[Rfam]
RNA sequence: GAAAGUAACAGCACUAGUGGAGUGAGACUCUCCACCACCUAAAGGGCUAGGGUUCCUCAGCAACGAUUAAAAGCUUGACGCUGACAAGUCAGCGUCGGUUUGUCGAAUCAGCUGAGGGUUAGUCGGUCCUAAGGCAUUUCCUAACUGGAGAAUGUCGAAAGGGAAACAGGUUAAUAUUCCUGUACCAUGAGAGUACGUGCGGCGACGCAAGCUCAGGGCCAGACUUUUUGGGAUAGGCUGACCAUUCCGAUGGUUAACACGUUAAGCCUGCGGAGUACCGUAAUGGUGAGAAGCAGGUGAAGCGUGGAAUAGCCCGUGUAUGCGGGUUUGGCCGACUCCUGGAAACCGUGAAAAUGGACCUGGGAAGGAUCUUUCAUGGCCGUACCGAGAACCGUUACUGGUGACCCUUGCUGAAUAGGUUAAGGUGUAU
Numbered sequence: 001g002a003a004a005g006u007a008a009c010a011g012c013a014c015u016a017g018u019g020g021a022g023u024g025a026g027a028c029u030c031u032c033c034a035c036c037a038c039c040u041a042a043a044g045g046g047c048u049a050g051g052g053u054u055c056c057u058c059a060g061c062a063a064c065g066a067u068u069a070a071a072a073g074c075u076u077g078a079c080g081c082u083g084a085c086a087a088g089u090c091a092g093c094g095u096c097g098g099u100u101u102g103u104c105g106a107a108u109c110a111g112c113u114g115a116g117g118g119u120u121a122g123u124c125g126g127u128c129c130u131a132a133g134g135c136a137u138u139u140c141c142u143a144a145c146u147g148g149a150g151a152a153u154g155u156c157g158a159a160a161g162g163g164a165a166a167c168a169g170g171u172u173a174a175u176a177u178u179c180c181u182g183u184a185c186c187a188u189g190a191g192a193g194u195a196c197g198u199g200c201g202g203c204g205a206c207g208c209a210a211g212c213u214c215a216g217g218g219c220c221a222g223a224c225u226u227u228u229u230g231g232g233a234u235a236g237g238c239u240g241a242c243c244a245u246u247c248c249g250a251u252g253g254u255u256a257a258c259a260c261g262u263u264a265a266g267c268c269u270g271c272g273g274a275g276u277a278c279c280g281u282a283a284u285g286g287u288g289a290g291a292a293g294c295a296g297g298u299g300a301a302g303c304g305u306g307g308a309a310u311a312g313c314c315c316g317u318g319u320a321u322g323c324g325g326g327u328u329u330g331g332c333c334g335a336c337u338c339c340u341g342g343a344a345a346c347c348g349u350g351a352a353a354a355u356g357g358a359c360c361u362g363g364g365a366a367g368g369a370u371c372u373u374u375c376a377u378g379g380c381c382g383u384a385c386c387g388a389g390a391a392c393c394g395u396u397a398c399u400g401g402u403g404a405c406c407c408u409u410g411c412u413g414a415a416u417a418g419g420u421u422a423a424g425g426u427g428u429a430u
Stems, first nucleotide, its partner, number of pairs: 017035006036427004044406002047403001050386002055117006065109004124382003128162002133156006139149003166183005186378008219357003225345009236333005241254005258306004267297005277287003392401002408422001410420002
A member of the RNA family "Archaeal large subunit ribosomal RNA" from a Candidatus Aenigmatarchaeota archaeon, 430 nucleotides of a longer RNA. The source organism's lineage runs through Archaea, Nanobdellati and Candidatus Aenigmatarchaeota. It scores 2272 bits against the family's covariance model.